[Rfam]
RNA: Aggregatibacter sRNA 22
RNA sequence: GGUGAGUGACAAAUCUGCCGGAGGCAGAUUUGAACGCUGCUUGCAGCGGCCCCAACGGGGCGAGGCACACGUAAGUGUGCCGAGUAGCCCAGCCAA
Numbered sequence: 001g002g003u004g005a006g007u008g009a010c011a012a013a014u015c016u017g018c019c020g021g022a023g024g025c026a027g028a029u030u031u032g033a034a035c036g037c038u039g040c041u042u043g044c045a046g047c048g049g050c051c052c053c054a055a056c057g058g059g060g061c062g063a064g065g066c067a068c069a070c071g072u073a074a075g076u077g078u079g080c081c082g083a084g085u086a087g088c089c090c091a092g093c094c095a096a
Base pairs, nucleotide, nucleotide: 010032011031012030013029014028015027016026017025018024019023035048036047037046038045039044049061050060051059052058053057064081065080066079067078068077069076070075085096087094